Molybdenum/Tungsten riboswitch aptamer (Moco RNA motif): a 122-nucleotide RNA from Thermacetogenium phaeum. The source organism's lineage runs through Bacteria, Bacillota, Thermoanaerobacteraceae, Thermacetogenium and Thermacetogenium phaeum.
RNA sequence: AAAAACGACAUUCUCCGAGUCCUCCCUCCUAAGGCCUCUUGGGCUAUGGCAGCAGGACCACUGGGUGCGCUUCGGAAACGAGCGCGCCUCCCGGCACGGAAAGGAGAGCGAAGACAGGGCCA
Numbered sequence: 001a002a003a004a005a006c007g008a009c010a011u012u013c014u015c016c017g018a019g020u021c022c023u024c025c026c027u028c029c030u031a032a033g034g035c036c037u038c039u040u041g042g043g044c045u046a047u048g049g050c051a052g053c054a055g056g057a058c059c060a061c062u063g064g065g066u067g068c069g070c071u072u073c074g075g076a077a078a079c080g081a082g083c084g085c086g087c088c089u090c091c092c093g094g095c096a097c098g099g100a101a102a103g104g105a106g107a108g109c110g111a112a113g114a115c116a117g118g119g120c121c122a
Stems, first nucleotide, its partner, number of pairs: 006113001011108006019058005025052001028049002033045004063089008072081003090099002